[Rfam]
RNA sequence: UCACCCGUCAUUGGGGAGUAGCCGCUCUGCACCACGCAGAGGUCCGCGUCAACACACUUGGCCCCCACGGCCAUGGCGCCGACAGCUUCAAGCCUGGCAAGACCUUUGACCGCACAGUCUCCGGAAGGGCCGGGGCUGCUGUGCGGUCUUUUGGUUUUCCGGCCCCUGGAGC
Numbered sequence: 001u002c003a004c005c006c007g008u009c010a011u012u013g014g015g016g017a018g019u020a021g022c023c024g025c026u027c028u029g030c031a032c033c034a035c036g037c038a039g040a041g042g043u044c045c046g047c048g049u050c051a052a053c054a055c056a057c058u059u060g061g062c063c064c065c066c067a068c069g070g071c072c073a074u075g076g077c078g079c080c081g082a083c084a085g086c087u088u089c090a091a092g093c094c095u096g097g098c099a100a101g102a103c104c105u106u107u108g109a110c111c112g113c114a115c116a117g118u119c120u121c122c123g124g125a126a127g128g129g130c131c132g133g134g135g136c137u138g139c140u141g142u143g144c145g146g147u148c149u150u151u152u153g154g155u156u157u158u159c160c161g162g163c164c165c166c167u168g169g170a171g172c
Stems, first nucleotide, its partner, number of pairs: 026040003042083003046079006059073005085172006
Description:
Rfam assigns this 172-nucleotide RNA from Hydrogenophaga taeniospiralis to the family "Manganese Mn2+ riboswitch aptamer (yybP-ykoY)". It scores 102 bits against the family's covariance model. The pairing is the family consensus, mapped onto this sequence. From the family's description: This RNA was originally discovered in E. coli during a large scale screen and was named SraF. The family was later found to exist upstream of related families of protein genes in many bacteria, including the the yybP and ykoK genes in B. subtilis. The organism belongs to Hydrogenophaga taeniospiralis, within Bacteria.